[Rfam]
RNA sequence: AGGUAAUUGUUCGUAGAACCUUUAUCACGACGAACACUCGGCCGUGCUGUGGGGGUCAAAUGCACUCCUUAGGCGCCCGUCGCCAGUAGUGCGGUGUGAGGAGAGGUUUAAUGCCUC
Numbered sequence: 001a002g003g004u005a006a007u008u009g010u011u012c013g014u015a016g017a018a019c020c021u022u023u024a025u026c027a028c029g030a031c032g033a034a035c036a037c038u039c040g041g042c043c044g045u046g047c048u049g050u051g052g053g054g055g056u057c058a059a060a061u062g063c064a065c066u067c068c069u070u071a072g073g074c075g076c077c078c079g080u081c082g083c084c085a086g087u088a089g090u091g092c093g094g095u096g097u098g099a100g101g102a103g104a105g106g107u108u109u110a111a112u113g114c115c116u117c
Base pairs, nucleotide, nucleotide: 001021002020003019004018008036009035010034011033012032013031014030037100038099039098040097041095042094043093044092045091046090047089048088051069052068053067054066055065056064072084073083074082075081103117104116105115106114107113

Shown here is a 117-nucleotide sequence from Alteribacillus bidgolensis, a member of the family "epsC RNA". By type it is a cis-regulatory element. NCBI's taxonomy places the organism under Bacteria, Bacillota, Bacilli, Caryophanales, Alteribacillus.